[Rfam]
The family of this 86-nucleotide RNA sequence from Oxobacter pfennigii is "c-di-GMP-I riboswitch aptamer".
It scores 80 bits against the family's covariance model.
The organism belongs to Oxobacter, within Bacteria.
RNA sequence: ACUCGAUAAAGGCAUAAUUAGUGAAAGCUAAUGACGCAAAGCUAUAGGGGCUAAAGUGUUUUACACUAUGCCAGCCAGUUGCCGAA
Numbered sequence: 001a002c003u004c005g006a007u008a009a010a011g012g013c014a015u016a017a018u019u020a021g022u023g024a025a026a027g028c029u030a031a032u033g034a035c036g037c038a039a040a041g042c043u044a045u046a047g048g049g050g051c052u053a054a055a056g057u058g059u060u061u062u063a064c065a066c067u068a069u070g071c072c073a074g075c076c077a078g079u080u081g082c083c084g085a086a
Base pairs, nucleotide, nucleotide: 012037013036017032018031019030020029021028022027040080041079042078043077047076048075049072050071051070056066057065058064059063